[Rfam]
RNA sequence: ACACGGGAAAGGAGGUGGUUCGACGAAUGAAUAUUCAUAGGACGCGUGAGGUGGCUGCCGGUUGAGCGCCACAGCCGCGGUACCCGUACCGCGGCACGCUGCAGUGGAUUCACUCCCCGCGCGAGCGCUGAGCUAAUCCAAGGCAGUCACCCGGCCCCCGAGCUCCCGGUUGUCCGACCGGGUACGGCGACGAGAAGUAAUUCUCCGCCGUAAAGCUCGGGGGCUGUGCCGU
Numbered sequence: 001a002c003a004c005g006g007g008a009a010a011g012g013a014g015g016u017g018g019u020u021c022g023a024c025g026a027a028u029g030a031a032u033a034u035u036c037a038u039a040g041g042a043c044g045c046g047u048g049a050g051g052u053g054g055c056u057g058c059c060g061g062u063u064g065a066g067c068g069c070c071a072c073a074g075c076c077g078c079g080g081u082a083c084c085c086g087u088a089c090c091g092c093g094g095c096a097c098g099c100u101g102c103a104g105u106g107g108a109u110u111c112a113c114u115c116c117c118c119g120c121g122c123g124a125g126c127g128c129u130g131a132g133c134u135a136a137u138c139c140a141a142g143g144c145a146g147u148c149a150c151c152c153g154g155c156c157c158c159c160g161a162g163c164u165c166c167c168g169g170u171u172g173u174c175c176g177a178c179c180g181g182g183u184a185c186g187g188c189g190a191c192g193a194g195a196a197g198u199a200a201u202u203c204u205c206c207g208c209c210g211u212a213a214a215g216c217u218c219g220g221g222g223g224c225u226g227u228g229c230c231g232u
Stems, first nucleotide, its partner, number of pairs: 014059006060134004065129002068126002074120002152226013165182006

A member of the RNA family "Actinobacteria sRNA Ms_IGR-5" from Nocardia vermiculata, 232 nucleotides long. On this family, see Li et al., RNA 2013: "Identification of small RNAs in Mycobacterium smegmatis using heterologous Hfq". Pairs were carried over by alignment from the consensus structure. Lineage of the source: Bacteria > Bacillati > Actinomycetes > Mycobacteriales > Nocardia. Rfam classes the family as a small RNA.